[Rfam]
RNA: mraW RNA
Organism: Mycolicibacterium wolinskyi
RNA sequence: CCUAGCCCGUGCAACGCGGCCUCUGCCCGAAUCGGCCCUGGCGUACUUCCCCAACGCCAGGUCCAUUGAUUCGGACAGAGACCACGCUGCAGGGGCUGUCCCUA
Numbered sequence: 001c002c003u004a005g006c007c008c009g010u011g012c013a014a015c016g017c018g019g020c021c022u023c024u025g026c027c028c029g030a031a032u033c034g035g036c037c038c039u040g041g042c043g044u045a046c047u048u049c050c051c052c053a054a055c056g057c058c059a060g061g062u063c064c065a066u067u068g069a070u071u072c073g074g075a076c077a078g079a080g081a082c083c084a085c086g087c088u089g090c091a092g093g094g095g096c097u098g099u100c101c102c103u104a
Stems, first nucleotide, its partner, number of pairs: 010091004015086002018083002021080005027074007034064002037061008